[Rfam]
Nucleotides: 068
Stems, first nucleotide, its partner, number of pairs: 005062009015052001017050006026044003
Number, partner (000 for none) and nucleotide at each position: 001000c002000a003000u004000g005062u006061c007060g008059u009058u010057a011056a012055a013054a014000g015052g016000c017050u018049u019048g020047u021046g022045a023000c024000c025000u026044u027043a028042u029000g030000u031000a032000u033000u034000u035000c036000g037000c038000a039000a040000u041000c042028a043027u044026a045022u046021c047020a048019c049018a050017g051000c052015c053000a054013u055012u056011u057010u058009g059008a060007c061006g062005a063000g064000u065000u066000u067000g068000g
This 68-nucleotide RNA from Drosophila ananassae belongs to the Rfam family "mir-2 microRNA precursor family".
The source organism's lineage runs through Eukaryota, Panarthropoda, Brachycera, Acalyptratae and ananassae species complex.